[Rfam]
Nucleotides: 074
Stems, first nucleotide, its partner, number of pairs: 001073007010026004028044005050066005
Number, partner (000 for none) and nucleotide at each position: 001073c002072c003071g004070g005069g006068u007067g008000u009000a010026g011025c012024g013023c014000a015000g016000u017000u018000u019000g020000g021000u022000a023013g024012c025011g026010c027000g028044c029043u030042u031041g032040a033000a034000u035000g036000g037000g038000g039000u040032u041031c042030a043029a044028g045000a046000g047000g048000c049000c050066g051065u052064g053063a054062g055000u056000u057000c058000g059000a060000c061000u062054c063053u064052c065051g066050c067007c068006a069005c070004u071003c072002g073001g074000a